[Rfam]
RNA: Vault RNA
Nucleotides: 115
Base pairs, nucleotide, nucleotide: 002110003109004108006106007105012099013098014097015096017095018094019093020092025080026079027078028077
Number, partner (000 for none) and nucleotide at each position: 001000g002110u003109g004108u005000c006106g007105g008000c009000g010000u011000a012099g013098u014097c015096g016000a017095g018094u019093g020092g021000u022000u023000a024000c025080u026079u027078c028077g029000u030000a031000a032000c033000u034000a035000u036000u037000u038000a039000a040000c041000a042000g043000u044000a045000c046000a047000u048000a049000u050000u051000u052000u053000c054000a055000a056000a057000u058000u059000g060000a061000u062000u063000g064000a065000g066000a067000u068000a069000u070000a071000a072000c073000g074000g075000g076000u077028c078027g079026a080025a081000u082000c083000c084000c085000g086000u087000a088000g089000a090000a091000a092020c093019c094018a095017c096015u097014g098013a099012c100000g101000c102000u103000u104000u105007c106006c107000a108004g109003c110002a111000c112000u113000u114000u115000u